Shown here is an 81-nucleotide RNA from Jejuibacter calystegiae, a member of the family "antisense RNA of dnaA mRNA".
[Rfam]
RNA sequence: UUUGGCGUUGGGCUUACGGGCCAUUAUGCCAUUGCCCACGGCGUGCAACAGGUGGGUUUUACCCAGACCGGUUCCGCCAUA
Numbered sequence: 001u002u003u004g005g006c007g008u009u010g011g012g013c014u015u016a017c018g019g020g021c022c023a024u025u026a027u028g029c030c031a032u033u034g035c036c037c038a039c040g041g042c043g044u045g046c047a048a049c050a051g052g053u054g055g056g057u058u059u060u061a062c063c064c065a066g067a068c069c070g071g072u073u074c075c076g077c078c079a080u081a
Stems, first nucleotide, its partner, number of pairs: 005042002009038005016032001018030001020029002051078004056074001061072003

Pairs were carried over by alignment from the consensus structure, which was predicted with RNAfold.